[Rfam]
RNA sequence: AAUCUAGCUGACAGGUGCUCACUUGUCCUCCUCCAUGCUUAGAUAAGGGAGGAGGCCAUAGUGGCAACUGUCACCAGGAUU
Number, nucleotide and partner (000 for none) at each position: 001a081002a080003u079004c078005u000006a000007g075008c000009u000010g072011a071012c070013a069014g068015g000016u066017g065018c064019u000020c063021a062022c061023u060024u058025g057026u000027c055028c054029u053030c052031c051032u050033c049034c048035a000036u046037g000038c000039u000040u000041a000042g000043a000044u000045a000046a036047g000048g034049g033050a032051g031052g030053a029054g028055g027056c000057c025058a024059u000060a023061g022062u021063g020064g018065c017066a016067a000068c014069u013070g012071u011072c010073a000074c000075c007076a000077g000078g004079a003080u002081u001
Description: Shown here is an 81-nucleotide RNA sequence from Erinaceus europaeus, a member of the family "mir-764 microRNA precursor family". The base pairs follow the family's consensus structure, which was predicted with RNAalifold. For this family Rfam cites "In silico detection and characteristics of novel microRNA genes in the Equus caballus genome using an integrated ab initio and comparative genomic approach" (Zhou et al., Genomics, 2009). Taxonomically the source falls in Erinaceus (Eukaryota, Chordata, Boreoeutheria, Erinaceinae). A search with the family's covariance model found it, with a score of 82 bits.